[Rfam]
RNA sequence: AAACAGCCCUCUAUGUAUUGGAUCUUUGGCAGUUUUGGCCCCCAAAGCCACUUUUGACUUAGUCUUCGCUGACGUGGCACCCACGUGUUGACCAUUGUGGGUGCCACGUCAGCGAAGACUAAGUCAAAAGUGGCCUUGGGGUCAAAACUGCCAAAGAUCCAAUACAUCGGAGGCUGUUU
Numbered sequence: 001a002a003a004c005a006g007c008c009c010u011c012u013a014u015g016u017a018u019u020g021g022a023u024c025u026u027u028g029g030c031a032g033u034u035u036u037g038g039c040c041c042c043c044a045a046a047g048c049c050a051c052u053u054u055u056g057a058c059u060u061a062g063u064c065u066u067c068g069c070u071g072a073c074g075u076g077g078c079a080c081c082c083a084c085g086u087g088u089u090g091a092c093c094a095u096u097g098u099g100g101g102u103g104c105c106a107c108g109u110c111a112g113c114g115a116a117g118a119c120u121a122a123g124u125c126a127a128a129a130g131u132g133g134c135c136u137u138g139g140g141g142u143c144a145a146a147a148c149u150g151c152c153a154a155a156g157a158u159c160c161a162a163u164a165c166a167u168c169g170g171a172g173g174c175u176g177u178u179u
Base pairs, nucleotide, nucleotide: 001179002178004176005175006174007173008172013167014166015165016164017163018162019161020160021159022158023157024156025155026154027153028152029151030150031149032148033147034146035145036144037143038142039141041140042139043138044137045136072109073108075106076105077104078103079102080101081100082099083098084097085096
Record summary
This 179-nucleotide RNA from Medicago truncatula belongs to the Rfam family "MIR2619 microRNA precursor family". Lineage of the source: Eukaryota > Spermatophyta > Mesangiospermae > Gunneridae > Medicago.